[Rfam]
RNA sequence: GAGAAUCUGCGAUGGGAAGUGCUUCUUCCAUCGCCGAUGAACUAGGAGGAGAGGGGAAAUCAAUUCGAAAGUUCGGCCGAGAAAUCGUUUCAUCCGCCAUUGGUUCUCUGGAUUGGCGGUAUGAUUGUUGCUCGUCUACAU
Numbered sequence: 001g002a003g004a005a006u007c008u009g010c011g012a013u014g015g016g017a018a019g020u021g022c023u024u025c026u027u028c029c030a031u032c033g034c035c036g037a038u039g040a041a042c043u044a045g046g047a048g049g050a051g052a053g054g055g056g057a058a059a060u061c062a063a064u065u066c067g068a069a070a071g072u073u074c075g076g077c078c079g080a081g082a083a084a085u086c087g088u089u090u091c092a093u094c095c096g097c098c099a100u101u102g103g104u105u106c107u108c109u110g111g112a113u114u115g116g117c118g119g120u121a122u123g124a125u126u127g128u129u130g131c132u133c134g135u136c137u138a139c140a141u
Stems, first nucleotide, its partner, number of pairs: 006037002009034009075137002078134004084125004094119006104112002
RNA: Small nucleolar RNA snoR111
Organism: Rhodamnia argentea